RNA: mir-574 microRNA precursor family
Nucleotides: 081
Base pairs, nucleotide, nucleotide: 008073009072010071011070012069013068014067015066017064018063019062020061022059024057025056027054028053029052032049033048034047035046
Number, partner (000 for none) and nucleotide at each position: 001000a002000g003000g004000c005000c006000u007000g008073g009072a010071g011070a012069g013068a014067g015066a016000a017064g018063c019062a020061g021000g022059g023000u024057c025056u026000g027054a028053u029052c030000u031000a032049u033048a034047g035046c036000c037000u038000c039000u040000g041000u042000g043000g044000c045000a046035g047034c048033u049032g050000u051000u052029g053028a054027u055000g056025a057024g058000a059022c060000c061020u062019u063018g064017c065000c066015u067014c068013u069012c070011u071010c072009u073008u074000u075000u076000u077000c078000u079000u080000g081000g